[Rfam]
RNA: Plastid-psbA-3 3UTR RNA
RNA sequence: GGAACAAUAACGCCCUCUUGAUAGAACAAGAAAGAGGUUAUUGCUCCUUUAUUU
Numbered sequence: 001g002g003a004a005c006a007a008u009a010a011c012g013c014c015c016u017c018u019u020g021a022u023a024g025a026a027c028a029a030g031a032a033a034g035a036g037g038u039u040a041u042u043g044c045u046c047c048u049u050u051a052u053u054u
Stems, first nucleotide, its partner, number of pairs: 001047003005043007016031005